Acido-Lenti-1 RNA: a 46-nucleotide sequence from Urbifossiella limnaea. The source organism's lineage runs through Bacteria, Planctomycetota, Planctomycetia, Gemmataceae and Urbifossiella. The family's consensus secondary structure is taken from published work. It is annotated as a small RNA.
RNA sequence: CCCGGGGUUUCCACCCCGGGCUAUGGACGAACGCCCCGCCGGGGCU
Numbered sequence: 001c002c003c004g005g006g007g008u009u010u011c012c013a014c015c016c017c018g019g020g021c022u023a024u025g026g027a028c029g030a031a032c033g034c035c036c037c038g039c040c041g042g043g044g045c046u
Stems, first nucleotide, its partner, number of pairs: 001020008033045005